Shown here is a 77-nucleotide RNA from Crocodylus porosus, a member of the family "Mammalian CPEB3 ribozyme". Rfam's curators write: The mammalian CPEB3 ribozyme is a self cleaving RNA located in the second intron of the CPEB3 gene which belongs to a family of genes regulating messenger RNA polyadenylation.
[Rfam]
RNA sequence: AGUUGCAAGCUCAAGGCCACAGCAGGAGUAUUCAUGUUGCGGCCAUGUCAGAUUCCAAUAAAUCUGUGAAUUCUGCU
Numbered sequence: 001a002g003u004u005g006c007a008a009g010c011u012c013a014a015g016g017c018c019a020c021a022g023c024a025g026g027a028g029u030a031u032u033c034a035u036g037u038u039g040c041g042g043c044c045a046u047g048u049c050a051g052a053u054u055c056c057a058a059u060a061a062a063u064c065u066g067u068g069a070a071u072u073c074u075g076c077u
Stems, first nucleotide, its partner, number of pairs: 015044004021077007028040003049066006